[Rfam]
RNA sequence: CCGUGCUAGAUGGGGAGUUAGCGGUGCCCUGUAACCCGCAAUCCGCUAUAGCGGGGUCGAAUUCCUGCUGGAGGUUUGCACCUGUAGGGGCCGGGGUCGAAUAAGCUACGAGGAUGACUGGGUCCUGUGCAACGAAACUCUACGAACCCUGUCAGGUCCGGAAGGAAGCAGCAGUAAGUAGAUGUUUUCGUGUGCCGCAGGGUAGCCUGGUCGGAGUAAACUGUUCGGUUCCCGCCUGUAGGUGUUAAAUCGAAGGCAGGUGCACGG
Numbered sequence: 001c002c003g004u005g006c007u008a009g010a011u012g013g014g015g016a017g018u019u020a021g022c023g024g025u026g027c028c029c030u031g032u033a034a035c036c037c038g039c040a041a042u043c044c045g046c047u048a049u050a051g052c053g054g055g056g057u058c059g060a061a062u063u064c065c066u067g068c069u070g071g072a073g074g075u076u077u078g079c080a081c082c083u084g085u086a087g088g089g090g091c092c093g094g095g096g097u098c099g100a101a102u103a104a105g106c107u108a109c110g111a112g113g114a115u116g117a118c119u120g121g122g123u124c125c126u127g128u129g130c131a132a133c134g135a136a137a138c139u140c141u142a143c144g145a146a147c148c149c150u151g152u153c154a155g156g157u158c159c160g161g162a163a164g165g166a167a168g169c170a171g172c173a174g175u176a177a178g179u180a181g182a183u184g185u186u187u188u189c190g191u192g193u194g195c196c197g198c199a200g201g202g203u204a205g206c207c208u209g210g211u212c213g214g215a216g217u218a219a220a221c222u223g224u225u226c227g228g229u230u231c232c233c234g235c236c237u238g239u240a241g242g243u244g245u246u247a248a249a250u251c252g253a254a255g256g257c258a259g260g261u262g263c264a265c266g267g
Base pairs, nucleotide, nucleotide: 001267002266003265004264005263006262009058010057011056012030013029014028015027017025018024019023035055036054037053038052039051064260065259066258067257068256069255073251074250075249076248077247079244080243081242082241083240084239085238086237087236088235093230097228098227099226100225101224102223105221107218108217109216115213116212117211118210119209120208121207122206123205124201125200126199127198128197129196130192131191133190134189135188136187137186139182140181141180142179143178149174150173151172152171157166158165159164
Dot-bracket structure: ((((((..(((((((.(((...))).))))....(((((...........)))))))).....((((((...(((((.((((((((((....(...((((((..(.(((.....(((((((((((((((((.(((((.(((((.....((((....(((....)))....))))...)))))...)))))))...))))))...)))))))))..)))..).)))))).)....))))))))))..)))))...)))))).))))))
Bacterial large signal recognition particle RNA: a 267-nucleotide RNA from Caldicoprobacter faecalis. The organism belongs to Caldicoprobacter, within Bacteria. The match comes from Rfam's covariance-model search (227 bits). Clan: SRP clan. The family's RNA type in Rfam is non-coding RNA gene. Its family is annotated with signal recognition particle, plasma membrane targeting and SRP-dependent cotranslational protein targeting to membrane, signal sequence recognition in the Gene Ontology. On this family, see Regalia et al., Nucleic Acids Res 2002: "Prediction of signal recognition particle RNA genes".